[Rfam]
RNA sequence: AAGGCUUCAGCUUUCUUUGAGAUUUUAGCUUGCACUUUUUCCACUGUGUUUGGUGAUGCUUAAUUGAAGCCCCGAUAUGUGUUCCUCCUCGCUAUCCGUUGUUGCAAUUUUGAUGCAGCAUUUGGAUGUCGGGGAACUUAAUCA
Numbered sequence: 001a002a003g004g005c006u007u008c009a010g011c012u013u014u015c016u017u018u019g020a021g022a023u024u025u026u027a028g029c030u031u032g033c034a035c036u037u038u039u040u041c042c043a044c045u046g047u048g049u050u051u052g053g054u055g056a057u058g059c060u061u062a063a064u065u066g067a068a069g070c071c072c073c074g075a076u077a078u079g080u081g082u083u084c085c086u087c088c089u090c091g092c093u094a095u096c097c098g099u100u101g102u103u104g105c106a107a108u109u110u111u112g113a114u115g116c117a118g119c120a121u122u123u124g125g126a127u128g129u130c131g132g133g134g135a136a137c138u139u140a141a142u143c144a
Stems, first nucleotide, its partner, number of pairs: 003071003008066003013063001018058002026056001028054003032050001034049002081137005087132002090128002095126004104116003
Small nucleolar RNA snoR136: a 144-nucleotide RNA sequence from Glycine max. Rfam links the family to the GO terms nucleolus and RNA processing. For this family Rfam cites "Mining small RNA sequencing data: a new approach to identify small nucleolar RNAs in Arabidopsis" (Chen and Wu, Nucleic Acids Res, 2009). The family has 8 seed sequences and 452 matches in Rfam 15.1. It scores 68 bits against the family's covariance model. Pairs were carried over by alignment from the consensus structure, which was predicted with mfold.